Rfam assigns this 64-nucleotide sequence from Ceyx cyanopectus to the family "mir-101 microRNA precursor family".

RNA sequence: UGUCCUUUUUCGGUUAUCAUGGUACCGGUGCUGUAUACGUAAAAGGUACAGUACUGUGAUAACU
Numbered sequence: 001u002g003u004c005c006u007u008u009u010u011c012g013g014u015u016a017u018c019a020u021g022g023u024a025c026c027g028g029u030g031c032u033g034u035a036u037a038c039g040u041a042a043a044a045g046g047u048a049c050a051g052u053a054c055u056g057u058g059a060u061a062a063c064u
Base pairs, nucleotide, nucleotide: 012064013063014062015061016060017059018058019057020056021055022054023053024052025051027049029048030047031046032045

Taxonomically the source falls in Ceyx (Eukaryota, Eumetazoa, Dipnotetrapodomorpha, Archelosauria). Its family is annotated with RISC complex and miRNA-mediated post-transcriptional gene silencing in the Gene Ontology.